[Rfam]
RNA sequence: UGAAGCGCGGCUUGGGAGAGCCUUAGCGCUUCGCAGCAACCACGGACGGCCUUUGGGAGAGGGGCGUGCGCGGGACAGCCAAAGGGGAGAUCGACCGAUGGAGAAUGCCCUUCUCAUCGGACUGACGCGGCAGAUGACGUUGG
Numbered sequence: 001u002g003a004a005g006c007g008c009g010g011c012u013u014g015g016g017a018g019a020g021c022c023u024u025a026g027c028g029c030u031u032c033g034c035a036g037c038a039a040c041c042a043c044g045g046a047c048g049g050c051c052u053u054u055g056g057g058a059g060a061g062g063g064g065c066g067u068g069c070g071c072g073g074g075a076c077a078g079c080c081a082a083a084g085g086g087g088a089g090a091u092c093g094a095c096c097g098a099u100g101g102a103g104a105a106u107g108c109c110c111u112u113c114u115c116a117u118c119g120g121a122c123u124g125a126c127g128c129g130g131c132a133g134a135u136g137a138c139g140u141u142g143g
Stems, first nucleotide, its partner, number of pairs: 001033008009022005040073002043070002050063005095120005101115005

About this RNA
flg-Rhizobiales RNA: a 143-nucleotide sequence from Rhodopseudomonas rhenobacensis. A search with the family's covariance model found it, with a score of 113 bits. Taxonomically the source falls in Rhodopseudomonas (Bacteria, Pseudomonadota, Alphaproteobacteria, Nitrobacteraceae).